The family of this 153-nucleotide sequence from Sphaerisporangium rufum is "c-di-AMP riboswitch aptamer (ydaO/yuaA leader)". NCBI's taxonomy places the organism under Bacteria, Bacillati, Actinomycetota, Streptosporangiaceae, Sphaerisporangium. The match comes from Rfam's covariance-model search (79 bits). Gene Ontology terms of the family: regulation of gene expression and cyclic-di-AMP binding.
[Rfam]
RNA sequence: GCCGUGCGACCGCCGAGUCCGCGCGUCACGCGCGAAGCCGGGGACCCAACUCCUCUGGGGUGAAUCAGGAGCGCCGUUCCCACGGGCGCCCCUGUAGGGCGACUUCCAGGCCCGAACCCGUCAGCUAACCCGGUAGGCGGAUUGGAAGAAGGA
Numbered sequence: 001g002c003c004g005u006g007c008g009a010c011c012g013c014c015g016a017g018u019c020c021g022c023g024c025g026u027c028a029c030g031c032g033c034g035a036a037g038c039c040g041g042g043g044a045c046c047c048a049a050c051u052c053c054u055c056u057g058g059g060g061u062g063a064a065u066c067a068g069g070a071g072c073g074c075c076g077u078u079c080c081c082a083c084g085g086g087c088g089c090c091c092c093u094g095u096a097g098g099g100c101g102a103c104u105u106c107c108a109g110g111c112c113c114g115a116a117c118c119c120g121u122c123a124g125c126u127a128a129c130c131c132g133g134u135a136g137g138c139g140g141a142u143u144g145g146a147a148g149a150a151g152g153a
Stems, first nucleotide, its partner, number of pairs: 011139004018036001020034006037134006047057002058119003066094004097113004